[Rfam]
This 135-nucleotide sequence belongs to the Rfam family "TPP riboswitch aptamer (THI element)".

RNA sequence: AAGUUGCACCAGGGGUGCCUGUAUUCUCAACAAUCUGAAGGGCCCUUGGCCUGGAUUGUUGUGAUAUGGGCUGAGAAAGUCCCUUUGAACCUGAACAGGAUAAUGCCUGCGUAGGGAGUGUGCAUUUCUAUUUUG
Numbered sequence: 001a002a003g004u005u006g007c008a009c010c011a012g013g014g015g016u017g018c019c020u021g022u023a024u025u026c027u028c029a030a031c032a033a034u035c036u037g038a039a040g041g042g043c044c045c046u047u048g049g050c051c052u053g054g055a056u057u058g059u060u061g062u063g064a065u066a067u068g069g070g071c072u073g074a075g076a077a078a079g080u081c082c083c084u085u086u087g088a089a090c091c092u093g094a095a096c097a098g099g100a101u102a103a104u105g106c107c108u109g110c111g112u113a114g115g116g117a118g119u120g121u122g123c124a125u126u127u128c129u130a131u132u133u134u135g
Stems, first nucleotide, its partner, number of pairs: 006123004011084004016078001017071009090115004096109004